[Rfam]
RNA: tRNA
Organism: Campylobacter gracilis
RNA sequence: UGGGCUAUCGUCUAAUGGCAGGACAACAAACUCUGGAUUUGUGAAUAUAGGUUCGACCCCUAUUAGCCCAU
Numbered sequence: 001u002g003g004g005c006u007a008u009c010g011u012c013u014a015a016u017g018g019c020a021g022g023a024c025a026a027c028a029a030a031c032u033c034u035g036g037a038u039u040u041g042u043g044a045a046u047a048u049a050g051g052u053u054c055g056a057c058c059c060c061u062a063u064u065a066g067c068c069c070a071u
Base pairs, nucleotide, nucleotide: 001070002069003068004067005066006065007064010024011023012022013021026042027041028040029039030038047063048062049061050060051059
Dot-bracket structure: (((((((..((((.......)))).(((((.......)))))....(((((.......)))))))))))).